[Rfam]
RNA: Alphaproteobacterial ar15
RNA sequence: AUCUCCCGGGCGCGUUCCUCCUCCCAUUAGCGCCCGCGAGUGUUCCCCUCUGGAGGUUUUGCCUAACGGCACUUCCAACAACUUCAGCCGGAUCCUUCCAGAUCCGGCUUUUUU
Numbered sequence: 001a002u003c004u005c006c007c008g009g010g011c012g013c014g015u016u017c018c019u020c021c022u023c024c025c026a027u028u029a030g031c032g033c034c035c036g037c038g039a040g041u042g043u044u045c046c047c048c049u050c051u052g053g054a055g056g057u058u059u060u061g062c063c064u065a066a067c068g069g070c071a072c073u074u075c076c077a078a079c080a081a082c083u084u085c086a087g088c089c090g091g092a093u094c095c096u097u098c099c100a101g102a103u104c105c106g107g108c109u110u111u112u113u114u
Stems, first nucleotide, its partner, number of pairs: 001041001003040003007036003012033004051077007086109009